The record is a 59-nucleotide RNA from Pseudomonas oryzae, which matches "nhaA-I RNA" in Rfam. Acidobacteria, Alphaproteobacteria, Betaproteobacteria and Gammaproteobacteria, Verrucomicrobia, cand. division NC10.
RNA sequence: GGGUGUCCGCACUGCAGCGUGCAGGCGGACAGGUUUCUUGUGUUGGUCGGGCCGCCACA
Dot-bracket structure: ....((((((.((((.....))))))))))..........(((.(((......))))))